[Rfam]
RNA sequence: GGCGAUAAAUGAUGUCGUGUAAUAGAUGCAGCGGACCCGGGGGCGGUACCCGGCGGCUCCACCAGAAAUCCCGGCGCCGGCAACGGCAUCGGGGCUCCUGACGGGGCCGAACUAGGAUCGACGUGUAUUCAAAGACGAUGUUUUUGCCCGGCCUGAAUGCGCCGUAAAACCGUUCAAACCUACAAGUGCCAACGACAACGAGGCGCUCGCUCUUGCGGCGUAA
Numbered sequence: 001g002g003c004g005a006u007a008a009a010u011g012a013u014g015u016c017g018u019g020u021a022a023u024a025g026a027u028g029c030a031g032c033g034g035a036c037c038c039g040g041g042g043g044c045g046g047u048a049c050c051c052g053g054c055g056g057c058u059c060c061a062c063c064a065g066a067a068a069u070c071c072c073g074g075c076g077c078c079g080g081c082a083a084c085g086g087c088a089u090c091g092g093g094g095c096u097c098c099u100g101a102c103g104g105g106g107c108c109g110a111a112c113u114a115g116g117a118u119c120g121a122c123g124u125g126u127a128u129u130c131a132a133a134g135a136c137g138a139u140g141u142u143u144u145u146g147c148c149c150g151g152c153c154u155g156a157a158u159g160c161g162c163c164g165u166a167a168a169a170c171c172g173u174u175c176a177a178a179c180c181u182a183c184a185a186g187u188g189c190c191a192a193c194g195a196c197a198a199c200g201a202g203g204c205g206c207u208c209g210c211u212c213u214u215g216c217g218g219c220g221u222a223a
Base pairs, nucleotide, nucleotide: 001148002147003146004145005144015138016137017136018135027127028126029125031124032123033122037053038052039051040050041049054109055108056107057106058105059104060103149164150163151162152161

The family of this 223-nucleotide RNA sequence from Edaphosphingomonas laterariae is "permuted transfer-messenger RNA". Bacterial tmRNA, also known as 10Sa RNA or SsrA, is named for its dual tRNA and mRNA-like properties. Its role is to liberate the mRNA from a stalled ribosome. To accomplish this part of the tmRNA is used as a reading frame that ends in a translation stop signal. The broken mRNA is replaced in the ribosome by the tmRNA and translation of the tmRNA leads to addition of a proteolysis tag to the incomplete protein enabling recognition by a protease. The source organism's lineage runs through Bacteria, Pseudomonadati, Alphaproteobacteria, Sphingomonadales and Edaphosphingomonas. A search with the family's covariance model found it, with a score of 138 bits.